A member of the RNA family "6S / SsrS RNA" from Psychrosphaera saromensis, 195 nucleotides long. The family has 150 seed sequences and 5,006 matches in Rfam 15.1. NCBI's taxonomy places the organism under Bacteria, Pseudomonadati, Pseudomonadota, Alteromonadales, Psychrosphaera.
RNA sequence: UGGGACCUGGGGUGUUUGACAGAAAAUUGUAUCCCUGAGCCGAUAAUACUUAUACAGGAGAGUAUUUUAUUUGCUAUUGCGCAAGCUCGACUCAUUUCGGUGAGUAAUCGAGAAGCCUACGGUGAAAAAAUAUUUUCCGCCUUGAACACUUCGGUUGUUCAUGGGUUAGGUUUUCAUCGGCACCUUGGGUGUCAC
Numbered sequence: 001u002g003g004g005a006c007c008u009g010g011g012g013u014g015u016u017u018g019a020c021a022g023a024a025a026a027u028u029g030u031a032u033c034c035c036u037g038a039g040c041c042g043a044u045a046a047u048a049c050u051u052a053u054a055c056a057g058g059a060g061a062g063u064a065u066u067u068u069a070u071u072u073g074c075u076a077u078u079g080c081g082c083a084a085g086c087u088c089g090a091c092u093c094a095u096u097u098c099g100g101u102g103a104g105u106a107a108u109c110g111a112g113a114a115g116c117c118u119a120c121g122g123u124g125a126a127a128a129a130a131u132a133u134u135u136u137c138c139g140c141c142u143u144g145a146a147c148a149c150u151u152c153g154g155u156u157g158u159u160c161a162u163g164g165g166u167u168a169g170g171u172u173u174u175c176a177u178c179g180g181c182a183c184c185u186u187g188g189g190u191g192u193c194a195c
Base pairs, nucleotide, nucleotide: 002193003192005190006189007188008187009186010185011184012183013182014181015180017179018178019177031166032165033164034163036161037160038159039155040154041153057138058137059136061134062133063132064131065130066129068128070126071125072124073123074122075121081116082115086112087111088110089109090108